[Rfam]
RNA sequence: AAAGUCGGAAUGGGUGUUGAAAGAUUACCGACAAGAUGAGGGAAACACGCAACCCUCGUUCGAUGCGGGUAAUUAUUCCAACAGUUCCGCAUCGAUGCCGCUGCU
Number, nucleotide and partner (000 for none) at each position: 001a000002a000003a000004g032005u031006c030007g029008g028009a000010a025011u024012g000013g000014g000015u000016g000017u000018u000019g000020a000021a000022a000023g000024a011025u010026u000027a000028c008029c007030g006031a005032c004033a000034a000035g000036a000037u000038g057039a056040g055041g054042g053043a000044a000045a000046c000047a000048c000049g000050c000051a000052a000053c042054c041055c040056u039057c038058g000059u000060u095061c094062g093063a092064u091065g090066c089067g088068g087069g000070u000071a086072a085073u084074u083075a000076u000077u000078c000079c000080a000081a000082c000083a074084g073085u072086u071087c068088c067089g066090c065091a064092u063093c062094g061095a060096u000097g000098c000099c000100g000101c000102u000103g000104c000105u000
The record is a 105-nucleotide RNA sequence, which matches "Methylobacterium-1 RNA" in Rfam. The base pairs follow the family's consensus structure, which is taken from published work. It is annotated as a small RNA.